Alphaproteobacteria transfer-messenger RNA: a 354-nucleotide RNA sequence from Boseongicola aestuarii. The family's RNA type in Rfam is non-coding RNA gene. The family's consensus secondary structure is taken from published work. The literature on the family includes a 1997 paper in RNA by Felden et al., "Probing the structure of the Escherichia coli 10Sa RNA (tmRNA)". The source organism's lineage runs through Bacteria, Pseudomonadati, Alphaproteobacteria, Paracoccaceae and Boseongicola.
RNA sequence: CCCCUUCCAACCGGCCCUCAAACACCCUAUAUUCAAUCUGUUCCGGCAACGGGACUAUGGACAUAAACGCGCUCGUAAUAAGCGGAUCGGACCCGGGGGCGGUACCCGGCGUCUCCACCAAAAAUCUCUCAUUUGGGGAUCAUGGGGACGAAAUAGGAUCGACGGACGUCUAAAGGGGUUUUGCUUUGUCUCGGUGAGGUACCACCGAUAUCGGUCCAUCAAAGCUAGUUGCAAAUGACAACAAAGCUCCAAUGGCGAUGGCUGCGUAAGCAGUCGGAACUAUUGAAACCUAAGUCCUUAGGCUUUGCGGUUUAAGGCGGGGUCCGCAGGCACCUGGCAACAGAAGCCUGCACU
Numbered sequence: 001c002c003c004c005u006u007c008c009a010a011c012c013g014g015c016c017c018u019c020a021a022a023c024a025c026c027c028u029a030u031a032u033u034c035a036a037u038c039u040g041u042u043c044c045g046g047c048a049a050c051g052g053g054a055c056u057a058u059g060g061a062c063a064u065a066a067a068c069g070c071g072c073u074c075g076u077a078a079u080a081a082g083c084g085g086a087u088c089g090g091a092c093c094c095g096g097g098g099g100c101g102g103u104a105c106c107c108g109g110c111g112u113c114u115c116c117a118c119c120a121a122a123a124a125u126c127u128c129u130c131a132u133u134u135g136g137g138g139a140u141c142a143u144g145g146g147g148a149c150g151a152a153a154u155a156g157g158a159u160c161g162a163c164g165g166a167c168g169u170c171u172a173a174a175g176g177g178g179u180u181u182u183g184c185u186u187u188g189u190c191u192c193g194g195u196g197a198g199g200u201a202c203c204a205c206c207g208a209u210a211u212c213g214g215u216c217c218a219u220c221a222a223a224g225c226u227a228g229u230u231g232c233a234a235a236u237g238a239c240a241a242c243a244a245a246g247c248u249c250c251a252a253u254g255g256c257g258a259u260g261g262c263u264g265c266g267u268a269a270g271c272a273g274u275c276g277g278a279a280c281u282a283u284u285g286a287a288a289c290c291u292a293a294g295u296c297c298u299u300a301g302g303c304u305u306u307g308c309g310g311u312u313u314a315a316g317g318c319g320g321g322g323u324c325c326g327c328a329g330g331c332a333c334c335u336g337g338c339a340a341c342a343g344a345a346g347c348c349u350g351c352a353c354u
Base pairs, nucleotide, nucleotide: 040055041054042053043052044051059191060190061189062188063187069184070183071179072178073177074176083168084167087165088164089163093109094108095107096106097105110150111149112148113147114146115145116144192207193206194205195204198217199216201215202214203213320335321334322333323332326351327350328349329348330347331346